[Rfam]
RNA: FMN riboswitch aptamer (RFN element)
Organism: Pseudoxanthomonas wuyuanensis
RNA sequence: UAACGUCUUCAGGGCGGGGUGAGAUUCCCCACCGGCGGUAGGCAACGCAUUCCCCGGAAUGCCUGCAAGCCCGCGAGCGCCUUCCCUGCGGGAAGGGUCAGCAGAUCCGGUCCGAUGCCGGAGCCGACGGUUGCAAGCGGCGGUUCGCGCCAGUCGCUCGCUAGAGUCCGGAUGAAAGAAGACGGCA
Numbered sequence: 001u002a003a004c005g006u007c008u009u010c011a012g013g014g015c016g017g018g019g020u021g022a023g024a025u026u027c028c029c030c031a032c033c034g035g036c037g038g039u040a041g042g043c044a045a046c047g048c049a050u051u052c053c054c055c056g057g058a059a060u061g062c063c064u065g066c067a068a069g070c071c072c073g074c075g076a077g078c079g080c081c082u083u084c085c086c087u088g089c090g091g092g093a094a095g096g097g098u099c100a101g102c103a104g105a106u107c108c109g110g111u112c113c114g115a116u117g118c119c120g121g122a123g124c125c126g127a128c129g130g131u132u133g134c135a136a137g138c139g140g141c142g143g144u145u146c147g148c149g150c151c152a153g154u155c156g157c158u159c160g161c162u163a164g165a166g167u168c169c170g171g172a173u174g175a176a177a178g179a180a181g182a183c184g185g186c187a
Stems, first nucleotide, its partner, number of pairs: 004184007017029003033126002035074004069124002077102002106122005128170003